[Rfam]
RNA: Small nucleolar RNA U61
RNA sequence: GUGCUGUGAUGAAAAUCUUGUGUCGGAGAUUUUUUGUCUGUGAUGGUCUACACAACCCUCUAAGAAGUUCUGAGCAC
Numbered sequence: 001g002u003g004c005u006g007u008g009a010u011g012a013a014a015a016u017c018u019u020g021u022g023u024c025g026g027a028g029a030u031u032u033u034u035u036g037u038c039u040g041u042g043a044u045g046g047u048c049u050a051c052a053c054a055a056c057c058c059u060c061u062a063a064g065a066a067g068u069u070c071u072g073a074g075c076a077c
Base pairs, nucleotide, nucleotide: 001077002076003075004074